[Rfam]
The record is a 70-nucleotide sequence from Mus spicilegus, which matches "mir-343 microRNA precursor family" in Rfam. The match comes from Rfam's covariance-model search (88 bits).

RNA sequence: UGGGAUAGAGUGGGUGUGGCAGGGGUAGCAGAGCCCAGGGCAACCUCUCCCUUCAUGUGCCCAGAUCCUG
Numbered sequence: 001u002g003g004g005a006u007a008g009a010g011u012g013g014g015u016g017u018g019g020c021a022g023g024g025g026u027a028g029c030a031g032a033g034c035c036c037a038g039g040g041c042a043a044c045c046u047c048u049c050c051c052u053u054c055a056u057g058u059g060c061c062c063a064g065a066u067c068c069u070g
Stems, first nucleotide, its partner, number of pairs: 002068003011063006019056001022053004027048002030046002033041003